Small nucleolar RNA SNORD60: an 82-nucleotide RNA from Takifugu bimaculatus. The source organism's lineage runs through Eukaryota, Opisthokonta, Teleostei, Neoteleostei and Takifugu. Rfam 15.1 lists 825 matches to the family in 373 species. A search with the family's covariance model found it, with a score of 62 bits. Gene Ontology terms of the family: RNA processing and nucleolus.
RNA sequence: AGCCAGUGAUGAUCAAUAAAUAUUUUCUGACACCUCGUAUGAGAGCAGCAUGCUCCUGAUUAUAGCUUUUAACCUGAGGCUC
Numbered sequence: 001a002g003c004c005a006g007u008g009a010u011g012a013u014c015a016a017u018a019a020a021u022a023u024u025u026u027c028u029g030a031c032a033c034c035u036c037g038u039a040u041g042a043g044a045g046c047a048g049c050a051u052g053c054u055c056c057u058g059a060u061u062a063u064a065g066c067u068u069u070u071a072a073c074c075u076g077a078g079g080c081u082c
Stems, first nucleotide, its partner, number of pairs: 001081004045055001047054002